Overview:
The family of this 109-nucleotide sequence from Bacillus sp. SG-1 is "TPP riboswitch aptamer (THI element)". From the family's description: Vitamin B(1) in its active form thiamin pyrophosphate (TPP) is an essential coenzyme that is synthesised by coupling of pyrimidine and thiazole moieties in bacteria. The family has 115 seed sequences and 16,130 matches in Rfam 15.1.

Nucleotides: 109
Stems, first nucleotide, its partner, number of pairs: 007096004011059004017029005036052007065090003071084004
Number, partner (000 for none) and nucleotide at each position: 001000c002000a003000a004000a005000a006000c007096c008095a009094c010093u011059g012058g013057g014056g015000g016000a017029g018028c019027c020026u021025u022000u023000u024000a025021a026020a027019g028018g029017c030000u031000g032000a033000g034000a035000u036052u037051a038050a039049a040048g041047u042046g043000u044000a045000c046042u047041a048040c049039u050038u051037u052036a053000a054000g055000a056014c057013c058012c059011u060000u061000u062000g063000a064000a065090c066089c067088u068000g069000a070000u071084c072083u073082a074081g075000u076000u077000c078000a079000u080000a081074c082073u083072a084071g085000c086000g087000g088067a089066g090065g091000g092000a093010a094009g095008u096007g097000u098000a099000g100000u101000c102000u103000g104000a105000a106000u107000g108000a109000u